RNA sequence: GGGGCUGAUUUUGGAUUUGACAGAAUUAUCGAAACCCUAGGUGCAUGCCGAGGUGCGGUAGGCCUCGUUAAUAAACCGCAACAAAUAUUCGCAAAUGACGAAAACUACGCUUUAGCAGCUUAAUAACUGAUUAAAGCCCUCUCUCCUUAUAAUCGAUUCUCUUAAGAUUAGGAUAAAGAGAGGUCAAAAUACCAAUAGAGAUCGCGUGGAUACUUUGCUUAGAGUAAAACGUUAAAAUUAACAGUAAAGCUAAUUUGUUAGUAAUGUGUUCACUCUAAACUAACAAGUGAAUUCAAAGAUUGAACUAAGCAUGUAGUUACCGAGGAUAUAGAAAUUUUGGACGCGGGUUCAACUCCCGCCAGCUCCAUAU
Numbered sequence: 001g002g003g004g005c006u007g008a009u010u011u012u013g014g015a016u017u018u019g020a021c022a023g024a025a026u027u028a029u030c031g032a033a034a035c036c037c038u039a040g041g042u043g044c045a046u047g048c049c050g051a052g053g054u055g056c057g058g059u060a061g062g063c064c065u066c067g068u069u070a071a072u073a074a075a076c077c078g079c080a081a082c083a084a085a086u087a088u089u090c091g092c093a094a095a096u097g098a099c100g101a102a103a104a105c106u107a108c109g110c111u112u113u114a115g116c117a118g119c120u121u122a123a124u125a126a127c128u129g130a131u132u133a134a135a136g137c138c139c140u141c142u143c144u145c146c147u148u149a150u151a152a153u154c155g156a157u158u159c160u161c162u163u164a165a166g167a168u169u170a171g172g173a174u175a176a177a178g179a180g181a182g183g184u185c186a187a188a189a190u191a192c193c194a195a196u197a198g199a200g201a202u203c204g205c206g207u208g209g210a211u212a213c214u215u216u217g218c219u220u221a222g223a224g225u226a227a228a229a230c231g232u233u234a235a236a237a238u239u240a241a242c243a244g245u246a247a248a249g250c251u252a253a254u255u256u257g258u259u260a261g262u263a264a265u266g267u268g269u270u271c272a273c274u275c276u277a278a279a280c281u282a283a284c285a286a287g288u289g290a291a292u293u294c295a296a297a298g299a300u301u302g303a304a305c306u307a308a309g310c311a312u313g314u315a316g317u318u319a320c321c322g323a324g325g326a327u328a329u330a331g332a333a334a335u336u337u338u339g340g341a342c343g344c345g346g347g348u349u350c351a352a353c354u355c356c357c358g359c360c361a362g363c364u365c366c367a368u369a370u
Stems, first nucleotide, its partner, number of pairs: 001366007021339007029331001034327001036325003040321004044313005049067005054080006111135004116129003138183006147173002150170004158201005205231003217250004253288010266275001268305004274299001343359005

The family of this 370-nucleotide RNA sequence from Candidatus Ishikawella capsulata is "transfer-messenger RNA". Rfam classes the family as a non-coding RNA gene. The literature on the family includes a 2010 paper in RNA Biol by Mao et al., "Variations on the tmRNA gene". The family is grouped with related families in Rfam's "tRNA clan". Bacterial tmRNA, also known as 10Sa RNA or SsrA, is named for its dual tRNA and mRNA-like properties. NCBI's taxonomy places the organism under Bacteria, Pseudomonadati, Gammaproteobacteria, Enterobacteriaceae, Candidatus Ishikawella capsulata.